[Rfam]
RNA sequence: UCAUACGCGGGAUGCUGUGACACGCGGCCCACACCCCGGCCGCCGGGACCGCGCCGAGCCACUGGCGAGACCGACCCGCCGCUUG
Numbered sequence: 001u002c003a004u005a006c007g008c009g010g011g012a013u014g015c016u017g018u019g020a021c022a023c024g025c026g027g028c029c030c031a032c033a034c035c036c037c038g039g040c041c042g043c044c045g046g047g048a049c050c051g052c053g054c055c056g057a058g059c060c061a062c063u064g065g066c067g068a069g070a071c072c073g074a075c076c077c078g079c080c081g082c083u084u085g
Stems, first nucleotide, its partner, number of pairs: 002085002006081001007079005014059002023053005029047001038072002041067004
The record is an 85-nucleotide RNA, which matches "c-di-GMP-II-GAG riboswitch aptamer" in Rfam. The sequence is in the family's curated seed alignment. The literature on the family includes a 2017 paper in Proc Natl Acad Sci U S A by Weinberg et al., "Bioinformatic analysis of riboswitch structures uncovers variant classes with altered ligand specificity".